[Rfam]
RNA sequence: UAAGCGGUGUGUGACUGGCGUAGACAUGGAGUACCAUGAGGGAGCGCACCGACGCUGCUGCAUGGAUGAUCGCGGUUACCAACACGCAUGGUCCUUGAGCAAACGCCGUACGCCUGGGCAAAGUAU
Numbered sequence: 001u002a003a004g005c006g007g008u009g010u011g012u013g014a015c016u017g018g019c020g021u022a023g024a025c026a027u028g029g030a031g032u033a034c035c036a037u038g039a040g041g042g043a044g045c046g047c048a049c050c051g052a053c054g055c056u057g058c059u060g061c062a063u064g065g066a067u068g069a070u071c072g073c074g075g076u077u078a079c080c081a082a083c084a085c086g087c088a089u090g091g092u093c094c095u096u097g098a099g100c101a102a103a104c105g106c107c108g109u110a111c112g113c114c115u116g117g118g119c120a121a122a123g124u125a126u
Stems, first nucleotide, its partner, number of pairs: 005051008015041002017114005026037004105119003
The record is a 126-nucleotide RNA sequence from Paenibacillus sp. HGF7, which matches "ZMP/ZTP riboswitch aptamer (pfl RNA motif)" in Rfam.